[Rfam]
RNA sequence: AGCCUCAUUCCAGAUGAGGAUGGGCACUGUUGAUCAGGGUCCAGAAUUGGUCACUGAGGCUAAAACUGAGACACAGGUUGCGCUUCUAGCACAGUAAAUGUGCUGCAGUGGUGACUGUGAGACCUGUAACAUCU
Numbered sequence: 001a002g003c004c005u006c007a008u009u010c011c012a013g014a015u016g017a018g019g020a021u022g023g024g025c026a027c028u029g030u031u032g033a034u035c036a037g038g039g040u041c042c043a044g045a046a047u048u049g050g051u052c053a054c055u056g057a058g059g060c061u062a063a064a065a066c067u068g069a070g071a072c073a074c075a076g077g078u079u080g081c082g083c084u085u086c087u088a089g090c091a092c093a094g095u096a097a098a099u100g101u102g103c104u105g106c107a108g109u110g111g112u113g114a115c116u117g118u119g120a121g122a123c124c125u126g127u128a129a130c131a132u133c134u
Stems, first nucleotide, its partner, number of pairs: 002060003006056002021043005027037001073127005087113002090110003
Dot-bracket structure: .(((.((.............(((((.(.........).)))))...........)).)))............(((((.........((.(((...............))).)).........))))).......

Description:
This 134-nucleotide RNA sequence from Dipodomys ordii belongs to the Rfam family "Small nucleolar RNA SNORA1". Taxonomically the source falls in Dipodomys (Eukaryota, Euteleostomi, Tetrapoda, Mammalia). The match comes from Rfam's covariance-model search (108 bits). Its family is annotated with nucleolus and RNA processing in the Gene Ontology. About the family: ACA1 is a member of the H/ACA class of snoRNA that guide the sites of modification of uridines to pseudouridines. Rfam 15.1 lists 1,282 matches to the family in 515 species. The family's consensus secondary structure was predicted with PFOLD.